[Rfam]
RNA sequence: UGUCUCCUCCAACACCUCCCAAGGUUUGGAUUCAAGCCCGCGCCGCAAGGUCUCGCGGGCUUUUUUUU
Numbered sequence: 001u002g003u004c005u006c007c008u009c010c011a012a013c014a015c016c017u018c019c020c021a022a023g024g025u026u027u028g029g030a031u032u033c034a035a036g037c038c039c040g041c042g043c044c045g046c047a048a049g050g051u052c053u054c055g056c057g058g059g060c061u062u063u064u065u066u067u068u
Stems, first nucleotide, its partner, number of pairs: 008030005035061008
RNA: Betaproteobacteria toxic small RNA